[Rfam]
RNA sequence: GUCCCAGUGAAGAUCUCAAGACCUACCGAUAGGAAGUGCCGUUUGACACUGUUAGCAGCAGCUGCUUCUCUCAGCUGCAGGUGUUCAUCCUUAGACCAUAACCUUUGUGGUUUGGUCUGGGGGUGGGGCUCCCAUCUGCCAUUGCUUGAUUGUAUUAAUUUUCUACUAUGAUGUUAUAUAUUGUAC
Numbered sequence: 001g002u003c004c005c006a007g008u009g010a011a012g013a014u015c016u017c018a019a020g021a022c023c024u025a026c027c028g029a030u031a032g033g034a035a036g037u038g039c040c041g042u043u044u045g046a047c048a049c050u051g052u053u054a055g056c057a058g059c060a061g062c063u064g065c066u067u068c069u070c071u072c073a074g075c076u077g078c079a080g081g082u083g084u085u086c087a088u089c090c091u092u093a094g095a096c097c098a099u100a101a102c103c104u105u106u107g108u109g110g111u112u113u114g115g116u117c118u119g120g121g122g123g124u125g126g127g128g129c130u131c132c133c134a135u136c137u138g139c140c141a142u143u144g145c146u147u148g149a150u151u152g153u154a155u156u157a158a159u160u161u162u163c164u165a166c167u168a169u170g171a172u173g174u175u176a177u178a179u180a181u182u183g184u185a186c
Stems, first nucleotide, its partner, number of pairs: 077139007084127007094117005100112004